[Rfam]
RNA sequence: UGCAUGCACUACUGUAAGUCUCUUUGGAUAAAAGUCUCUGCUAAAUGGCAUUUA
Numbered sequence: 001u002g003c004a005u006g007c008a009c010u011a012c013u014g015u016a017a018g019u020c021u022c023u024u025u026g027g028a029u030a031a032a033a034g035u036c037u038c039u040g041c042u043a044a045a046u047g048g049c050a051u052u053u054a
Base pairs, nucleotide, nucleotide: 013043014041015040016039022034023033024032025031
Dot-bracket structure: ............((((.....((((.....))))....))).)...........
The family of this 54-nucleotide RNA from Oncorhynchus tshawytscha is "UnaL2 LINE 3' element".